The family of this 120-nucleotide RNA is "Alphaproteobacterial ar14". By type it is a small RNA.
[Rfam]
RNA sequence: CGUUGACCGGGCGCUCUCCUCCCAUAAGCCCCGGUCCCGGCGCAGACCCGACCUCCUCCCCGAGGUUUGUGCCGCAAACGAAAAGGCGAUGCGCACCUCCUCCCGCGCAUCGCCUUUUUU
Numbered sequence: 001c002g003u004u005g006a007c008c009g010g011g012c013g014c015u016c017u018c019c020u021c022c023c024a025u026a027a028g029c030c031c032c033g034g035u036c037c038c039g040g041c042g043c044a045g046a047c048c049c050g051a052c053c054u055c056c057u058c059c060c061c062g063a064g065g066u067u068u069g070u071g072c073c074g075c076a077a078a079c080g081a082a083a084a085g086g087c088g089a090u091g092c093g094c095a096c097c098u099c100c101u102c103c104c105g106c107g108c109a110u111c112g113c114c115u116u117u118u119u120u
Stems, first nucleotide, its partner, number of pairs: 005036003009032003013029003039073010084115011